[Rfam]
This 181-nucleotide sequence from Scophthalmus maximus belongs to the Rfam family "Small nucleolar RNA SNORA23". The match comes from Rfam's covariance-model search (89 bits). A reference for the family is Huttenhofer et al. (2001), "RNomics: an experimental approach that identifies 201 candidates for novel, small, non-messenger RNAs in mouse", EMBO J. It is annotated as an H/ACA-box small nucleolar RNA. The source organism's lineage runs through Eukaryota, Chordata, Craniata, Carangaria and Scophthalmus. About the family: The members of this family belong to the H/ACA class of snoRNAs which are thought to guide the sites of modification of uridines to pseudouridines. This family includes human snoRNA ACA23 (SNORA23) and mouse snoMBI-1. ACA23 is predicted to guide the pseudouridylation of residue U3737 and U4331 of 28S rRNA. Pairs were carried over by alignment from the consensus structure, which was predicted with RNAalifold.

RNA sequence: GGUGAAUGGUGUGCACAGUGUUGGUCUGUGUUAUGUGUUGUUGUCCGGCUGUGUUUUGCAGUCUGGGCAGCAGUGCUCACGCCGCACCUGCAGCCAUAGAACAACUGGAGUUCAUAGUACUGGCCCUUGACGUCUUUAUCGACCUCUCACCAUCGGUCAGCCUCCAAACUCUCCAACACGC
Numbered sequence: 001g002g003u004g005a006a007u008g009g010u011g012u013g014c015a016c017a018g019u020g021u022u023g024g025u026c027u028g029u030g031u032u033a034u035g036u037g038u039u040g041u042u043g044u045c046c047g048g049c050u051g052u053g054u055u056u057u058g059c060a061g062u063c064u065g066g067g068c069a070g071c072a073g074u075g076c077u078c079a080c081g082c083c084g085c086a087c088c089u090g091c092a093g094c095c096a097u098a099g100a101a102c103a104a105c106u107g108g109a110g111u112u113c114a115u116a117g118u119a120c121u122g123g124c125c126c127u128u129g130a131c132g133u134c135u136u137u138a139u140c141g142a143c144c145u146c147u148c149a150c151c152a153u154c155g156g157u158c159a160g161c162c163u164c165c166a167a168a169c170u171c172u173c174c175a176a177c178a179c180g181c
Stems, first nucleotide, its partner, number of pairs: 013091003029081003035077001036075006043068004047063001050060003107174004120160006129146002132143003